The record is a 67-nucleotide sequence from Bemisia tabaci, which matches "mir-10 microRNA precursor family" in Rfam.
RNA sequence: CACCGGAACCCGUAGAUCCGAACUUGUGUAAAAUGGUGUCACAAGCUCGUUUUCAAGGGUCCGGUUG
Numbered sequence: 001c002a003c004c005g006g007a008a009c010c011c012g013u014a015g016a017u018c019c020g021a022a023c024u025u026g027u028g029u030a031a032a033a034u035g036g037u038g039u040c041a042c043a044a045g046c047u048c049g050u051u052u053u054c055a056a057g058g059g060u061c062c063g064g065u066u067g
Stems, first nucleotide, its partner, number of pairs: 002065006009059003015053002019049003023045006

A search with the family's covariance model found it, with a score of 49 bits. A reference for the family is Lee and Ambros (2001), "An extensive class of small RNAs in Caenorhabditis elegans", Science. The source organism's lineage runs through Eukaryota, Metazoa, Arthropoda, Insecta and Bemisia. Rfam links the family to the GO terms miRNA-mediated post-transcriptional gene silencing and RISC complex. Rfam 15.1 lists 3,853 matches to the family in 853 species.